[Rfam]
RNA sequence: AUAUGUGUGAAGGAGUGGUUUUAUUAAAUCAGUGGGAACAAGGAAACACAUGAUUUAAUAAAAUCAUCAA
Number, nucleotide and partner (000 for none) at each position: 001a000002u000003a000004u000005g000006u000007g000008u000009g000010a000011a000012g000013g000014a000015g000016u066017g065018g064019u063020u062021u061022u000023a000024u058025u057026a000027a000028a000029u053030c052031a051032g049033u048034g047035g000036g000037a000038a000039c000040a000041a000042g000043g000044a000045a000046a000047c034048a033049c032050a000051u031052g030053a029054u000055u000056u000057a025058a024059u000060a000061a021062a020063a019064u018065c017066a016067u000068c000069a000070a000

Shown here is a 70-nucleotide RNA, a member of the family "Cyano-1 RNA". The sequence is in the family's curated seed alignment. The family's consensus secondary structure is taken from published work.